RNA sequence: AUGCAUCCAGUAGGAAUUGAACCCACAACUUCCCAAUUAUGAGAUGGGUGCUUUUAUCAUUCAUUCAUGGAUGC
Dot-bracket structure: ..((((((.((.((.......)).))............(((.((((((((.......)))))))))))))))))
Plastid-ycf2 5UTR RNA: a 74-nucleotide sequence from Taxus chinensis. The base pairs follow the family's consensus structure, which was predicted with LocARNA. The match comes from Rfam's covariance-model search (87 bits). From the family's description: Plastid ycf2 is a non-coding RNA (ncRNA) recognised in plastids. It was found in the prime untranslated region (5UTR) of ycf2 genes, it presents a tRNA-like motif which suggests it can be involved in mRNA maturation, particularly involved in defining the precise 5' end of the transcript. NCBI's taxonomy places the organism under Eukaryota, Streptophyta, Spermatophyta, Acrogymnospermae, Taxus.